[Rfam]
RNA sequence: UUGUACUUAUACGACUGACGGAAUUGUGGAGCUUACCACGUGAAGUAUAAGAGAUUAUAGCCGACCGUCUGGGCAAUUUUG
Numbered sequence: 001u002u003g004u005a006c007u008u009a010u011a012c013g014a015c016u017g018a019c020g021g022a023a024u025u026g027u028g029g030a031g032c033u034u035a036c037c038a039c040g041u042g043a044a045g046u047a048u049a050a051g052a053g054a055u056u057a058u059a060g061c062c063g064a065c066c067g068u069c070u071g072g073g074c075a076a077u078u079u080u081g
Stems, first nucleotide, its partner, number of pairs: 004053001006051007015042001017069005026039004058076001060074003
This 81-nucleotide RNA from Absicoccus porci belongs to the Rfam family "ZMP/ZTP riboswitch aptamer (pfl RNA motif)". The organism belongs to Absicoccus, within Bacteria. The match comes from Rfam's covariance-model search (63 bits).